[Rfam]
RNA sequence: UAGUGUUUGCGGGGGGACCACGCAGUGGUUGAGAAGGUAAAACCUGACCCUUUGAACCUGUUGGUUAAUACCAGCGUAGGGAAGCAAAUCAUGUAUGAUA
Numbered sequence: 001u002a003g004u005g006u007u008u009g010c011g012g013g014g015g016g017a018c019c020a021c022g023c024a025g026u027g028g029u030u031g032a033g034a035a036g037g038u039a040a041a042a043c044c045u046g047a048c049c050c051u052u053u054g055a056a057c058c059u060g061u062u063g064g065u066u067a068a069u070a071c072c073a074g075c076g077u078a079g080g081g082a083a084g085c086a087a088a089u090c091a092u093g094u095a096u097g098a099u100a
Stems, first nucleotide, its partner, number of pairs: 006088005011051004016045001017029005036044003057080004061074004

The family of this 100-nucleotide RNA sequence from Clostridium sp. N3C is "TPP riboswitch aptamer (THI element)". The match comes from Rfam's covariance-model search (68 bits). Gene Ontology term of the family: thiamine pyrophosphate binding. The source organism's lineage runs through Bacteria, Bacillati, Clostridia, Clostridiaceae and Clostridium.